Shown here is a 141-nucleotide RNA sequence from Digitaria exilis, a member of the family "MIR529 microRNA precursor family". Lineage of the source: Eukaryota > Embryophyta > Mesangiospermae > Panicodae > Digitaria. For this family Rfam cites "MicroRNAs in loblolly pine (Pinus taeda L.) and their association with fusiform rust gall development" (Lu et al., Plant J, 2007). It scores 80 bits against the family's covariance model.
RNA sequence: UCAUCGACGCUAAAGGGAGAAGAGAGAGAGUACAGCCUUACCAUGUAUACACGCACUUCAGAUCUAAUCAGUCUCCCAUGCAGUUAUGUGUGACCGAUGAAGGCUGUACCCUCUCUCUUCUUCUCUUAGCCUCUUUGAUGC
Numbered sequence: 001u002c003a004u005c006g007a008c009g010c011u012a013a014a015g016g017g018a019g020a021a022g023a024g025a026g027a028g029a030g031u032a033c034a035g036c037c038u039u040a041c042c043a044u045g046u047a048u049a050c051a052c053g054c055a056c057u058u059c060a061g062a063u064c065u066a067a068u069c070a071g072u073c074u075c076c077c078a079u080g081c082a083g084u085u086a087u088g089u090g091u092g093a094c095c096g097a098u099g100a101a102g103g104c105u106g107u108a109c110c111c112u113c114u115c116u117c118u119u120c121u122u123c124u125c126u127u128a129g130c131c132u133c134u135u136u137g138a139u140g141c
Stems, first nucleotide, its partner, number of pairs: 005137002009130001012127002015124014030109009